RNA: Lysine riboswitch aptamer
Organism: Salipaludibacillus neizhouensis
RNA sequence: AGUGAGUAUAGAGGUGCAAAGGUCAUUAGUACGUAUUUUGAGGAGAUUGAGCUCCUAUGAUAAAUAUCGAAAGGGAUACUUGCCGAAGCAAUAGUCUGCUCAUAGGAUUGUUGUUGGGUCUGUCAUUGAAUAAAUGCAGAACUGUCAUGUAGUCAGAUGACUAUAUGGAGGGCUAUCUCACGC
Number, nucleotide and partner (000 for none) at each position: 001a000002g000003u000004g000005a000006g178007u000008a176009u175010a174011g173012a000013g000014g000015u000016g083017c082018a081019a080020a000021g000022g077023u076024c075025a000026u000027u000028a000029g000030u000031a000032c000033g067034u066035a065036u064037u063038u062039u000040g000041a000042g000043g000044a000045g000046a000047u000048u000049g000050a000051g000052c000053u000054c000055c000056u000057a000058u000059g000060a000061u000062a038063a037064a036065u035066a034067u033068c000069g000070a000071a000072a000073g000074g000075g024076a023077u022078a000079c000080u019081u018082g017083c016084c000085g000086a000087a115088g114089c113090a112091a111092u110093a109094g108095u107096c106097u105098g000099c000100u000101c000102a000103u000104a000105g097106g096107a095108u094109u093110g092111u091112u090113g089114u088115u087116g143117g142118g000119u140120c139121u138122g137123u000124c136125a135126u134127u133128g000129a000130a000131u000132a000133a127134a126135u125136g124137c122138a121139g120140a119141a000142c117143u116144g000145u168146c167147a166148u165149g164150u163151a162152g000153u000154c000155a000156g000157a000158u000159g000160a000161c000162u151163a150164u149165a148166u147167g146168g145169a000170g000171g000172g000173c011174u010175a009176u008177c000178u006179c000180a000181c000182g000183c000